[Rfam]
The record is a 117-nucleotide RNA sequence from Peromyscus maniculatus, which matches "Small nucleolar RNA SNORA32" in Rfam. The family has 9 seed sequences and 615 matches in Rfam 15.1. Rfam classes the family as an H/ACA-box small nucleolar RNA. Gene Ontology terms of the family: RNA processing and nucleolus.
RNA sequence: UAGUUGUUACCAGGCUUUUAGAAUGCAAUUUCUCAUUUGCUGUGGGCAUAAUCUAAGAAAACCCCCUAGGGUUUUCCAUAGACUACGUUGUUAGUAGACAACCUGUCAAGAACAUUU
Numbered sequence: 001u002a003g004u005u006g007u008u009a010c011c012a013g014g015c016u017u018u019u020a021g022a023a024u025g026c027a028a029u030u031u032c033u034c035a036u037u038u039g040c041u042g043u044g045g046g047c048a049u050a051a052u053c054u055a056a057g058a059a060a061a062c063c064c065c066c067u068a069g070g071g072u073u074u075u076c077c078a079u080a081g082a083c084u085a086c087g088u089u090g091u092u093a094g095u096a097g098a099c100a101a102c103c104u105g106u107c108a109a110g111a112a113c114a115u116u117u
Stems, first nucleotide, its partner, number of pairs: 003052005010045003025040004066110002069107001070103004082095002